Annotation:
This 85-nucleotide RNA sequence from Cuscuta europaea belongs to the Rfam family "Small nucleolar RNA Z155". The family's RNA type in Rfam is C/D-box small nucleolar RNA. Its family is annotated with nucleolus and RNA processing in the Gene Ontology.

[Rfam]
RNA sequence: CAUCGAGAUGAAGAGUAAUUUUCCGGAAUUCAUAAUUCAUAUAUGUCGAUCGAAUAAAAUUCAGACUACAAUUAUCUGAUCGAUG
Numbered sequence: 001c002a003u004c005g006a007g008a009u010g011a012a013g014a015g016u017a018a019u020u021u022u023c024c025g026g027a028a029u030u031c032a033u034a035a036u037u038c039a040u041a042u043a044u045g046u047c048g049a050u051c052g053a054a055u056a057a058a059a060u061u062c063a064g065a066c067u068a069c070a071a072u073u074a075u076c077u078g079a080u081c082g083a084u085g
Base pairs, nucleotide, nucleotide: 001085002084003083004082005081006080